The record is a 94-nucleotide RNA from Cucumis melo, which matches "Small nucleolar RNA Z266" in Rfam. Lineage of the source: Eukaryota > Euphyllophyta > rosids > Cucurbitales > Cucumis melo subsp. agrestis. A reference for the family is Chen et al. (2003), "The high diversity of snoRNAs in plants: identification and comparative study of 120 snoRNA genes from Oryza sativa", Nucleic Acids Res.
RNA sequence: UCAUGGCAAGGAUGAUGAUUCAAUUAGAUGUGUGAAAGGAUUAUUCCUUUCUGAACUUAACUUUUUGAGGCAUUUUCAAGUCUGACUUGCUCGA
Numbered sequence: 001u002c003a004u005g006g007c008a009a010g011g012a013u014g015a016u017g018a019u020u021c022a023a024u025u026a027g028a029u030g031u032g033u034g035a036a037a038g039g040a041u042u043a044u045u046c047c048u049u050u051c052u053g054a055a056c057u058u059a060a061c062u063u064u065u066u067g068a069g070g071c072a073u074u075u076u077c078a079a080g081u082c083u084g085a086c087u088u089g090c091u092c093g094a
Stems, first nucleotide, its partner, number of pairs: 001094002005091006